[Rfam]
RNA: mir-214 microRNA precursor family
Organism: Oncorhynchus kisutch
RNA sequence: CUCCGGGAGUUGCUGUGUGUCUGCCUGUCUACACUUGCUGUGCAGAACAUCCUGGAACCUGUACAGCAGGCACAGACAGGCAGACAGACACCAGCCCGUCA
Numbered sequence: 001c002u003c004c005g006g007g008a009g010u011u012g013c014u015g016u017g018u019g020u021c022u023g024c025c026u027g028u029c030u031a032c033a034c035u036u037g038c039u040g041u042g043c044a045g046a047a048c049a050u051c052c053u054g055g056a057a058c059c060u061g062u063a064c065a066g067c068a069g070g071c072a073c074a075g076a077c078a079g080g081c082a083g084a085c086a087g088a089c090a091c092c093a094g095c096c097c098g099u100c101a
Base pairs, nucleotide, nucleotide: 018086019085022082023081024080025079026078027077028076029075030074034070036068037067038066039065040064041063043061044060045059